This 85-nucleotide RNA sequence from Paraburkholderia tagetis belongs to the Rfam family "Pseudomonas sRNA P9". The organism belongs to Paraburkholderia, within Bacteria. The family's RNA type in Rfam is non-coding RNA gene. Rfam describes the family as follows. This small RNA (sRNA) was computationally identified in the genome of the opportunistic pathogen Pseudomonas aeruginosa and its expression verified by northern blot analysis. P9 appears to be conserved in several Pseudomonas species in addition to Bordetella spp. In both Pseudomonas and Bordetella spp P9 appears to be located upstream of a predicted threonine dehydratase gene. The family's consensus secondary structure was predicted with RNAalifold. For this family Rfam cites "Identification of 17 Pseudomonas aeruginosa sRNAs and prediction of sRNA-encoding genes in 10 diverse pathogens using the bioinformatic tool sRNAPredict2" (Livny et al., Nucleic Acids Res, 2006).
RNA sequence: CUGAUUAUUCGCACCAUUCAUCGAAUGGUGGGUUAGUGUACGUCUUGGUAAAAGCGACAAAAACCCGCCCCUGGAGGCGGGUUUU
Numbered sequence: 001c002u003g004a005u006u007a008u009u010c011g012c013a014c015c016a017u018u019c020a021u022c023g024a025a026u027g028g029u030g031g032g033u034u035a036g037u038g039u040a041c042g043u044c045u046u047g048g049u050a051a052a053a054g055c056g057a058c059a060a061a062a063a064c065c066c067g068c069c070c071c072u073g074g075a076g077g078c079g080g081g082u083u084u085u
Stems, first nucleotide, its partner, number of pairs: 012030006061084009